[Rfam]
Nucleotides: 079
Stems, first nucleotide, its partner, number of pairs: 001041005044074002051069007
Number, partner (000 for none) and nucleotide at each position: 001041c002040c003039u004038g005037u006000u007000c008000a009000c010000g011000c012000g013000g014000c015000g016000c017000u018000g019000c020000a021000g022000u023000g024000a025000u026000g027000c028000g029000g030000c031000g032000c033000c034000g035000c036000c037005a038004c039003a040002g041001g042000u043000c044074g045073g046000g047000a048000u049000g050000u051069g052068a053067u054066c055065u056064c057063g058000a059000a060000g061000u062000u063057c064056g065055g066054g067053a068052u069051u070000g071000a072000a073045c074044c075000a076000g077000g078000a079000a
The record is a 79-nucleotide RNA sequence from Halopiger xanaduensis, which matches "eL15-Euryarchaeota ribosomal protein leader" in Rfam.
The literature on the family includes a 2020 paper in BMC Microbiol by Eckert and Weinberg, "Discovery of 20 novel ribosomal leader candidates in bacteria and archaea".